RNA sequence: AUAAGAGUUAAAGCGCCAGGACUUUUUAAAAGUUGACGAGGACAGGGUUUAUCGAAUAAUCGGCGGAUGCCCUGCGUUUGACCAACGAUAUAAACCUUACAAAAACUAAAAGCAAUUUUAGUGACAAAAGGGUUAGGUCAUGGAU
Numbered sequence: 001a002u003a004a005g006a007g008u009u010a011a012a013g014c015g016c017c018a019g020g021a022c023u024u025u026u027u028a029a030a031a032g033u034u035g036a037c038g039a040g041g042a043c044a045g046g047g048u049u050u051a052u053c054g055a056a057u058a059a060u061c062g063g064c065g066g067a068u069g070c071c072c073u074g075c076g077u078u079u080g081a082c083c084a085a086c087g088a089u090a091u092a093a094a095c096c097u098u099a100c101a102a103a104a105a106c107u108a109a110a111a112g113c114a115a116u117u118u119u120a121g122u123g124a125c126a127a128a129a130g131g132g133u134u135a136g137g138u139c140a141u142g143g144a145u
Base pairs, nucleotide, nucleotide: 020034021033022032023031024030025029043074044073045072046071047070052063053062054061055060075087076086077085078084091135092134093133095131096130097129105122106121107120108119109118110117111116
RNA: glmS glucosamine-6-phosphate activated ribozyme aptamer